The record is a 152-nucleotide RNA from Cynoglossus semilaevis, which matches "U12 minor spliceosomal RNA" in Rfam. Its Rfam clan is "U2 clan". Lineage of the source: Eukaryota > Deuterostomia > Chordata > Gnathostomata > Cynoglossus. Pairs were carried over by alignment from the consensus structure.
RNA sequence: AUGCCUUAAACUGAUGAGUAAGGAAAAUAACGAUGCGGGGUGACGCCCGUGUCCACGUCAUAGAACGUUUCAAUUUUUGACUGGGCACAGGUCUGUCGGAAAGGUGACUUACCUACUUUGUAAGAUGCCUUACCCGAACUAGGACCUGCCCU
Numbered sequence: 001a002u003g004c005c006u007u008a009a010a011c012u013g014a015u016g017a018g019u020a021a022g023g024a025a026a027a028u029a030a031c032g033a034u035g036c037g038g039g040g041u042g043a044c045g046c047c048c049g050u051g052u053c054c055a056c057g058u059c060a061u062a063g064a065a066c067g068u069u070u071c072a073a074u075u076u077u078u079g080a081c082u083g084g085g086c087a088c089a090g091g092u093c094u095g096u097c098g099g100a101a102a103g104g105u106g107a108c109u110u111a112c113c114u115a116c117u118u119u120g121u122a123a124g125a126u127g128c129c130u131u132a133c134c135c136g137a138a139c140u141a142g143g144a145c146c147u148g149c150c151c152u
Stems, first nucleotide, its partner, number of pairs: 004023005032053008055068004083151004089147006099135001102130005108124005